[Rfam]
RNA: mir-877 microRNA precursor family
RNA sequence: GUAGAGGGUCGGCGCGGGGACACGGGUGGGCCUGGGAUCCUUGGACCCUCAGACACGUGUCCUCUUCUCCCUCCUCCCAG
Numbered sequence: 001g002u003a004g005a006g007g008g009u010c011g012g013c014g015c016g017g018g019g020a021c022a023c024g025g026g027u028g029g030g031c032c033u034g035g036g037a038u039c040c041u042u043g044g045a046c047c048c049u050c051a052g053a054c055a056c057g058u059g060u061c062c063u064c065u066u067c068u069c070c071c072u073c074c075u076c077c078c079a080g
Stems, first nucleotide, its partner, number of pairs: 004076004008071001011070002014067001016064009026054001032052004036047001038045002